[Rfam]
The family of this 97-nucleotide part of an RNA from Methanohalophilus mahii is "Archaeal large subunit ribosomal RNA".
RNA sequence: GAUAUGGCAUGAAAGGAUCUGCGAAAUGAAGGAAACAGUCGCGAGGCUGGUGUACGAGUUUCGUUGCCGAUGUCAUAUCUUACGUUUUGAAGAACGG
Numbered sequence: 001g002a003u004a005u006g007g008c009a010u011g012a013a014a015g016g017a018u019c020u021g022c023g024a025a026a027u028g029a030a031g032g033a034a035a036c037a038g039u040c041g042c043g044a045g046g047c048u049g050g051u052g053u054a055c056g057a058g059u060u061u062c063g064u065u066g067c068c069g070a071u072g073u074c075a076u077a078u079c080u081u082a083c084g085u086u087u088u089g090a091a092g093a094a095c096g097g
Base pairs, nucleotide, nucleotide: 001079002078003077004076005075006074007073008072009071010070015068016067021064022063023062024061025060026059027058031055036049037048038047039046040045083096084095085094

Source information:
On this family, see Cannone et al., BMC Bioinformatics 2002: "The comparative RNA web (CRW) site: an online database of comparative sequence and structure information for ribosomal, intron, and other RNAs". It is one of the family's seed sequences. NCBI's taxonomy places the organism under Archaea, Methanobacteriota, Methanomicrobia, Methanosarcinales, Methanohalophilus mahii.